[Rfam]
RNA sequence: CACGCGGGCCGUGACUGGCGCGUCGGGAUGGGGGCAACCAUCGGGAAGCGGCCCGAGCUGUGCGAUGUGGAGCCGUGCGCCUGGGCCAUCGCG
Numbered sequence: 001c002a003c004g005c006g007g008g009c010c011g012u013g014a015c016u017g018g019c020g021c022g023u024c025g026g027g028a029u030g031g032g033g034g035c036a037a038c039c040a041u042c043g044g045g046a047a048g049c050g051g052c053c054c055g056a057g058c059u060g061u062g063c064g065a066u067g068u069g070g071a072g073c074c075g076u077g078c079g080c081c082u083g084g085g086c087c088a089u090c091g092c093g
Base pairs, nucleotide, nucleotide: 003057005055006054007053008052009051010050011049012048015045016044017081018080019079020078021077028041029040030039031038072086073085074084
RNA: ZMP/ZTP riboswitch aptamer (pfl RNA motif)
Organism: Streptomyces hainanensis